RNA sequence: UGUCUCCUCCACCCUCCAAUGGUGGAUUUAAACCCGACUCUCACGAGUCGGGUUUUUUUUC
Number, nucleotide and partner (000 for none) at each position: 001u000002g000003u000004c000005u000006c000007c000008u026009c025010c024011a023012c022013c021014c000015u000016c000017c000018a000019a000020u000021g013022g012023u011024g010025g009026a008027u000028u000029u000030a000031a054032a053033c052034c051035c050036g049037a048038c047039u000040c000041u000042c000043a000044c000045g000046a000047g038048u037049c036050g035051g034052g033053u032054u031055u000056u000057u000058u000059u000060u000061c000
The record is a 61-nucleotide RNA sequence from Comamonas sp. BIGb0124, which matches "Betaproteobacteria toxic small RNA" in Rfam. The base pairs follow the family's consensus structure, which was predicted with WAR. The family has 51 seed sequences and 951 matches in Rfam 15.1. The match comes from Rfam's covariance-model search (64 bits). Overexpression in amino aid rich medium attenuates growth, suggesting role in repressing amino acid intake and metabolism. For this family Rfam cites "Identification of small RNAs abundant in Burkholderia cenocepacia biofilms reveal putative regulators with a potential role in carbon and iron metabolism" (Sass et al., Sci Rep, 2017).